The record is a 117-nucleotide sequence from Capsicum annuum, which matches "Small nucleolar RNA snoR104" in Rfam. Rfam classes the family as an H/ACA-box small nucleolar RNA.
RNA sequence: UGGGAGCAUCUAUGAGGUGAGAUGUUGCAUACACAAUCUUUCCACAGUAAAAUUCUAUAAAAAUCUAAUUGAGGUACUUGAGAUAGUUCUUCAAGUUAUUAAUCUGGACACACAAAA
Dot-bracket structure: (.(.(((((((........))))))).))........................(.(..........(.((((((.(((......))).)))))).)...........).).......